A member of the RNA family "mir-133 microRNA precursor family" from Saccoglossus kowalevskii, 72 nucleotides long. The base pairs follow the family's consensus structure, which was predicted with PFOLD. About the family: mir-133 was first experimentally characterised in mouse and homologues have since been discovered in several other species. The mature sequence is excised from the 3' arm of the hairpin. Gene Ontology terms of the family: miRNA-mediated post-transcriptional gene silencing and RISC complex. Rfam 15.1 lists 3,763 matches to the family in 801 species. On this family, see Lagos-Quintana et al., Curr Biol 2002: "Identification of tissue-specific microRNAs from mouse". The organism belongs to Saccoglossus, within Eukaryota.
[Rfam]
RNA sequence: GUGCUGAAGCUGGUAAAUCGGAACCAAAUCAUAUUACAAAUGGAUUUGGUCCCCUUCAACCAGCUGUAGCAU
Numbered sequence: 001g002u003g004c005u006g007a008a009g010c011u012g013g014u015a016a017a018u019c020g021g022a023a024c025c026a027a028a029u030c031a032u033a034u035u036a037c038a039a040a041u042g043g044a045u046u047u048g049g050u051c052c053c054c055u056u057c058a059a060c061c062a063g064c065u066g067u068a069g070c071a072u
Stems, first nucleotide, its partner, number of pairs: 003070004008065007017056001020052003024049007